[Rfam]
RNA sequence: UAACUACAUAAAGCAAGGUGGCGGCUGAACUCCCUGAACGAAAGGGGGUGAAGCAUAUGACGACAUAUCAAGUAUUUAGCUUAAUAGCACAAUCUAGUUUAGUGUUAAUAGCGCUACUCACACUAAUUAUAACUAUUGUCGUCAAUUUAAACAAAAAGAAAUAGCCACCCUGCCCUGAGAAAGUAAGGUGAGCUAUUUCAGGAAAAAUCUUUCUUUCAGCCGCUCUUUAAGCGGCAUGUAGUUGCAUUGCCUGAGCGUAGCUGCGCUCAGG
Numbered sequence: 001u002a003a004c005u006a007c008a009u010a011a012a013g014c015a016a017g018g019u020g021g022c023g024g025c026u027g028a029a030c031u032c033c034c035u036g037a038a039c040g041a042a043a044g045g046g047g048g049u050g051a052a053g054c055a056u057a058u059g060a061c062g063a064c065a066u067a068u069c070a071a072g073u074a075u076u077u078a079g080c081u082u083a084a085u086a087g088c089a090c091a092a093u094c095u096a097g098u099u100u101a102g103u104g105u106u107a108a109u110a111g112c113g114c115u116a117c118u119c120a121c122a123c124u125a126a127u128u129a130u131a132a133c134u135a136u137u138g139u140c141g142u143c144a145a146u147u148u149a150a151a152c153a154a155a156a157a158g159a160a161a162u163a164g165c166c167a168c169c170c171u172g173c174c175c176u177g178a179g180a181a182a183g184u185a186a187g188g189u190g191a192g193c194u195a196u197u198u199c200a201g202g203a204a205a206a207a208u209c210u211u212u213c214u215u216u217c218a219g220c221c222g223c224u225c226u227u228u229a230a231g232c233g234g235c236a237u238g239u240a241g242u243u244g245c246a247u248u249g250c251c252u253g254a255g256c257g258u259a260g261c262u263g264c265g266c267u268c269a270g271g
Stems, first nucleotide, its partner, number of pairs: 001244005007238003013173003017169006026051001028049001030048005059143007073086002095135004184200001186198001220234004250271009
RNA: BsrG
Organism: Anaerobacillus alkalidiazotrophicus